[Rfam]
RNA sequence: GGACCAAGUGAUGAGAAAUGGAUACAAUAUCUCACGACGGUCAUCUGAGACAGCAUAUUUGCUUGUCAGGGUUGAUUCGAUAUCCAAUGUUUCUGAUGGUU
Numbered sequence: 001g002g003a004c005c006a007a008g009u010g011a012u013g014a015g016a017a018a019u020g021g022a023u024a025c026a027a028u029a030u031c032u033c034a035c036g037a038c039g040g041u042c043a044u045c046u047g048a049g050a051c052a053g054c055a056u057a058u059u060u061g062c063u064u065g066u067c068a069g070g071g072u073u074g075a076u077u078c079g080a081u082a083u084c085c086a087a088u089g090u091u092u093c094u095g096a097u098g099g100u101u
Stems, first nucleotide, its partner, number of pairs: 001101002004098001051065003
RNA: Small nucleolar RNA Z161/Z228